[Rfam]
RNA sequence: UAGCCUGUUGUCAAUGAUGGAUUCUUGUUGAAGCUGAAUAUAACUGAUUGAGUCAACAUUUCGUCACUACCACUGAGACAACAGACAG
Numbered sequence: 001u002a003g004c005c006u007g008u009u010g011u012c013a014a015u016g017a018u019g020g021a022u023u024c025u026u027g028u029u030g031a032a033g034c035u036g037a038a039u040a041u042a043a044c045u046g047a048u049u050g051a052g053u054c055a056a057c058a059u060u061u062c063g064u065c066a067c068u069a070c071c072a073c074u075g076a077g078a079c080a081a082c083a084g085a086c087a088g
Base pairs, nucleotide, nucleotide: 001088003086005084006083007082008081009080010079011078012077
A member of the RNA family "Small nucleolar RNA SNORD70" from Buteo japonicus, 88 nucleotides long. The literature on the family includes a 2001 paper in EMBO J by Huttenhofer et al., "RNomics: an experimental approach that identifies 201 candidates for novel, small, non-messenger RNAs in mouse". It is annotated as a C/D-box small nucleolar RNA. It scores 82 bits against the family's covariance model. Rfam describes the family as follows. snoRNA HBII-234 belongs to the C/D family of snoRNAs. It is the human orthologue of the mouse MBII-234 and is predicted to guide 2'O-ribose methylation of the small 18S rRNA on position A512. It is hosted, together with HBII-95, by the core C/D box snoRNA protein encoding gene NOP5/NOP58. Lineage of the source: Eukaryota > Coelurosauria > Telluraves > Accipitridae > Buteo.